[Rfam]
RNA sequence: AAGGCGUAUUCCGAAAAGCCUAAAUAGAGUAGGAG
Numbered sequence: 001a002a003g004g005c006g007u008a009u010u011c012c013g014a015a016a017a018g019c020c021u022a023a024a025u026a027g028a029g030u031a032g033g034a035g
Base pairs, nucleotide, nucleotide: 002021003020004019005018010034011033012032
DUF805b RNA: a 35-nucleotide sequence from Kordia algicida. Pairs were carried over by alignment from the consensus structure, which is taken from published work.